[Rfam]
RNA: Small nucleolar RNA SNORD24
Organism: Nannospalax galili
RNA sequence: UGCCAUAAUGAUGACAUUUUAUUUGCUACUCUUGACCGUAAGAAUGACGAUAAUUACAAACCACCGAUAUUGUAACUGAGGCG
Number, nucleotide and partner (000 for none) at each position: 001u083002g082003c081004c080005a000006u000007a000008a000009u000010g000011a000012u000013g000014a000015c000016a000017u000018u000019u000020u000021a000022u000023u000024u000025g000026c000027u000028a000029c000030u000031c000032u000033u000034g000035a000036c000037c000038g000039u000040a000041a000042g000043a000044a000045u000046g000047a000048c000049g000050a000051u000052a000053a000054u000055u000056a000057c000058a000059a000060a000061c000062c000063a000064c000065c000066g000067a000068u000069a000070u000071u000072g000073u000074a000075a000076c000077u000078g000079a000080g004081g003082c002083g001